[Rfam]
Rfam assigns this 63-nucleotide RNA from Pediococcus argentinicus to the family "Fluoride riboswitch aptamer (crcB RNA motif)".
RNA sequence: AAGCAAGACAGCGAUGGUGUUCGCUGUAAAUAUCUGAUUAAGAUUGAUGACACCUGUCCUUUU
Numbered sequence: 001a002a003g004c005a006a007g008a009c010a011g012c013g014a015u016g017g018u019g020u021u022c023g024c025u026g027u028a029a030a031u032a033u034c035u036g037a038u039u040a041a042g043a044u045u046g047a048u049g050a051c052a053c054c055u056g057u058c059c060u061u062u063u
Stems, first nucleotide, its partner, number of pairs: 010025004016054006032044004
NCBI's taxonomy places the organism under Bacteria, Bacillati, Bacilli, Lactobacillales, Pediococcus.